[Rfam]
The record is a 70-nucleotide RNA sequence from Gluconacetobacter takamatsuzukensis, which matches "Makes More Granules Regulator RNA (mmgR)" in Rfam.
The family's RNA type in Rfam is small RNA.
RNA sequence: AACGGCUGCUUCUUGGACGUUUCCUCCCUAAACUUGGCGGUGCUUCGGCACCGUCUUUUUUUUGUCCGGG
Dot-bracket structure: .......(.((...)).).................((((((((....))))))))...............
Source information
The base pairs follow the family's consensus structure. SuhB later renamed mmgR (makes more granules regulator) was a putative non-coding RNA found multiple times in the Agrobacterium tumefaciens genome and related alpha-proteobacteria. Other non-coding RNAs uncovered in the same analysis include: speF, ybhL, metA, and serC.Several studies inSinorhizobium meliloti showed that suhB element is indeed a non-coding RNA:firstly it was detected on Northern blot and called Sm8RNA, secondly in an RNAseq study referred to as SmelC689.The mutant phenotype's (strain lacking the small RNA) cytoplasm contains higher content of polyhydroxybutyrate (PBH)storage granules than wild type strain. The sRNA is required to limit the PBH intracellular accumulation when the nitrogen-fixing Sinorhizobium meliloti is under condition of surplus carbon in relation to nitrogen. It has been renamed to mmgR. Further study confirmed that mmgR fine-tunes the regulation of PBH storage.Northern blot confirmed the expression of the sRNA in other rhizobia species. Clan: suhB sRNA clan.